RNA sequence: GGUAAAAUGGCUGAGCAAGCAUUAGAUUGUAAAUCUAAAGACAGAGGUUGAACUCUUUUUACCA
Numbered sequence: 001g002g003u004a005a006a007a008u009g010g011c012u013g014a015g016c017a018a019g020c021a022u023u024a025g026a027u028u029g030u031a032a033a034u035c036u037a038a039a040g041a042c043a044g045a046g047g048u049u050g051a052a053c054u055c056u057u058u059u060u061a062c063c064a
Stems, first nucleotide, its partner, number of pairs: 001063007010020003022038005043056004
tRNA: a 64-nucleotide sequence from Myotis brandtii.
By type it is a transfer RNA.
The literature on the family includes a 1993 paper in Trends Biochem Sci by Hou, "The tertiary structure of tRNA and the development of the genetic code".
Pairs were carried over by alignment from the consensus structure, which is taken from published work.
A search with the family's covariance model found it, with a score of 47 bits.